RNA sequence: AGAGGCCCAUGAUGAUUUGAAUUUGCCUACAUUGUCUGAUCAUCUAAUGAAUGGCAGAGACAUAUUAUUAGUUCUGAGGCCUCA
Numbered sequence: 001a002g003a004g005g006c007c008c009a010u011g012a013u014g015a016u017u018u019g020a021a022u023u024u025g026c027c028u029a030c031a032u033u034g035u036c037u038g039a040u041c042a043u044c045u046a047a048u049g050a051a052u053g054g055c056a057g058a059g060a061c062a063u064a065u066u067a068u069u070a071g072u073u074c075u076g077a078g079g080c081c082u083c084a
Stems, first nucleotide, its partner, number of pairs: 002083001004081004

A member of the RNA family "Small nucleolar RNA SNORD34" from Salix brachista, 84 nucleotides long. The family's RNA type in Rfam is C/D-box small nucleolar RNA. Rfam links the family to the GO terms nucleolus and RNA processing. The family has 14 seed sequences and 1,319 matches in Rfam 15.1. A reference for the family is Galardi et al. (2002), "Purified box C/D snoRNPs are able to reproduce site-specific 2'-O-methylation of target RNA in vitro", Mol Cell Biol. The family is grouped with related families in Rfam's "SNORD34 clan".